[Rfam]
RNA sequence: GGAGCAGCUUCUGGAGAGACUGCGGAAAUUCCGCUGCGCCGAAGGGUUCACAAUCUCAGGCAAAAGGACAGAAGAGUACUG
Numbered sequence: 001g002g003a004g005c006a007g008c009u010u011c012u013g014g015a016g017a018g019a020c021u022g023c024g025g026a027a028a029u030u031c032c033g034c035u036g037c038g039c040c041g042a043a044g045g046g047u048u049c050a051c052a053a054u055c056u057c058a059g060g061c062a063a064a065a066g067g068a069c070a071g072a073a074g075a076g077u078a079c080u081g
Stems, first nucleotide, its partner, number of pairs: 008074006020036001022034002038061003041057002045055003
Record summary:
The record is an 81-nucleotide RNA sequence from Paenibacillus durus, which matches "Glycine riboswitch aptamer" in Rfam. The base pairs follow the family's consensus structure. Lineage of the source: Bacteria > Bacillati > Bacilli > Paenibacillaceae > Paenibacillus.